[Rfam]
RNA sequence: ACCCUGUUACGUAUACUGAAGGUAUACCGGACAGUUUUAUAAUGCACUCAGGAUACAUUUAGUAUACGUACAGGGU
Numbered sequence: 001a002c003c004c005u006g007u008u009a010c011g012u013a014u015a016c017u018g019a020a021g022g023u024a025u026a027c028c029g030g031a032c033a034g035u036u037u038u039a040u041a042a043u044g045c046a047c048u049c050a051g052g053a054u055a056c057a058u059u060u061a062g063u064a065u066a067c068g069u070a071c072a073g074g075g076u
Stems, first nucleotide, its partner, number of pairs: 002075005009069012022056004027052002030049002034045001